RNA sequence: GAAGCGCGGCGGGCCAGCUUGCAAUUUCAUGACACACUCUCUCCAUUUCUCUGCCUGUCAUGACUUGGUUGAUCGAUGGAGCGGUGGUUUUCAUUGCCCGAUUGAGGAUCAGGAGUUGGGGAGAGAAUUGAAGAGAGUGCAUUGUGAAUUGCAAGCUCCUCCUUUCUUUUCG
Numbered sequence: 001g002a003a004g005c006g007c008g009g010c011g012g013g014c015c016a017g018c019u020u021g022c023a024a025u026u027u028c029a030u031g032a033c034a035c036a037c038u039c040u041c042u043c044c045a046u047u048u049c050u051c052u053g054c055c056u057g058u059c060a061u062g063a064c065u066u067g068g069u070u071g072a073u074c075g076a077u078g079g080a081g082c083g084g085u086g087g088u089u090u091u092c093a094u095u096g097c098c099c100g101a102u103u104g105a106g107g108a109u110c111a112g113g114a115g116u117u118g119g120g121g122a123g124a125g126a127a128u129u130g131a132a133g134a135g136a137g138u139g140c141a142u143u144g145u146g147a148a149u150u151g152c153a154a155g156c157u158c159c160u161c162c163u164u165u166c167u168u169u170u171c172g
Stems, first nucleotide, its partner, number of pairs: 016157012029145004035139008044130002047127006054120003073105005079099001
Dot-bracket structure: ...............((((((((((((.((((..((((((((.((.((((((.(((................(((((.(...................).)))))............))).)))))).)).))))))))..))))))))))))))))...............
RNA: MIR1023 microRNA precursor family